Rfam assigns this 69-nucleotide RNA from Malus domestica to the family "Small nucleolar RNA Z105". For this family Rfam cites "The high diversity of snoRNAs in plants: identification and comparative study of 120 snoRNA genes from Oryza sativa" (Chen et al., Nucleic Acids Res, 2003).
RNA sequence: CAGGCAUAGUGAUGAUGUGUAUUUUUCUGAUUUAUUCUUGAUGAAUUAAUUACCUCCUACUCAUACUGA
Dot-bracket structure: .....((.(...............((.................))...............).)).....
It scores 50 bits against the family's covariance model. Lineage of the source: Eukaryota > rosids > Rosaceae > Amygdaloideae > Malus.